[Rfam]
RNA sequence: AAAGAAGACCCUGUUGAGCUUGGACUCUAGAUUGGCAUUGUAGGAGGACAUUGGGGAUAUAGUAAUAGGUGGGAGCUGUUCCGCAGCGACAAUGUAAGACCACUUCCUCAGUCGUCUUCCUACUAAUUCAGUAAUACCGUGCUUCCUUAAUGGGAAAGUUUGCAGUGAUCGGAUCUUUAAGGCCCGUUCGGGGUCGAUCGGAUCUGAAAACAGUGUCAUUUGGGGAGUUUGGCUGGGGCGGUACAUCUGCUAAACAAUAACGCAGAUGUCCAAAGGUGAGCUCAGGUGAACAGAAAUCUACCAUAGCGCGAAAGGGUAAAAGCUCGCCUUAUUUGCAUGUUCAGUACGUAUGCAAGGCGCAAAAGCGUGGCCUAUCGAUCCUUUUACUUUUAUAAGCUUUAAGUUAAAGGUGACAGAAAAGUUACCACAGGGAUAAUUGGCUUGUGGCACCCAAGCGUACAUAGCGACGGUGCUUUUUGAUCCUUCGAUGUUGGCUCUUCCUAUCAUUGCGAAGCAUAAAUCGCAAAGUGUAGGAUUCUUCACCCACUAACAGGAACGUGAGCUGAGUUUAGACCAUCGUGAGAUAGGUUAGUUUUUAC
Dot-bracket structure: .((......((((.(((((((..((((...(.(((((..((((((((((((((((((..........(((((..((.........))............))))))))))))).))))))))))...(((((.....(((.....((.....))..................(((((..............)))))...)))..))))).....))))).)....))))..((((.....))).)((((((...........))))))..((....((((((.(.(((((.......)).)))...).((......))....))))))....(((((((((.......))))))))).(((....))).))..........((((.(..((((.......))))).)))).........)))))..))))))........(.(.(.((((((...((.......))...))))))...)).)..........(((((((.(((..((.(((((........)))))...))..((.(.....).))......))))..)..)))).).....(((((((....))).)))).....))..
Background
Eukaryotic large subunit ribosomal RNA: a 599-nucleotide part of an RNA from Octopus sinensis. Pairs were carried over by alignment from the consensus structure, which is taken from published work. The source organism's lineage runs through Eukaryota, Eumetazoa, Protostomia, Lophotrochozoa and Octopus.